[Rfam]
RNA: Small nucleolar RNA SNORA9
RNA sequence: CCGCAGGCGUCCAGCGUGGGGGGGCCUGGCGUGGCCCCCGCCAUUCCUGCAGCGCCUGCCAGAGCAGCCCCGGGACGGUUUGAGGCCCCUCCUCGCUAUUUCGAGGCGGGGUUAUAGAAACCCCGGACACCC
Numbered sequence: 001c002c003g004c005a006g007g008c009g010u011c012c013a014g015c016g017u018g019g020g021g022g023g024g025c026c027u028g029g030c031g032u033g034g035c036c037c038c039c040g041c042c043a044u045u046c047c048u049g050c051a052g053c054g055c056c057u058g059c060c061a062g063a064g065c066a067g068c069c070c071c072g073g074g075a076c077g078g079u080u081u082g083a084g085g086c087c088c089c090u091c092c093u094c095g096c097u098a099u100u101u102c103g104a105g106g107c108g109g110g111g112u113u114a115u116a117g118a119a120a121c122c123c124c125g126g127a128c129a130c131c132c
Stems, first nucleotide, its partner, number of pairs: 003059006017043003022037005071125004086111004091106001093104003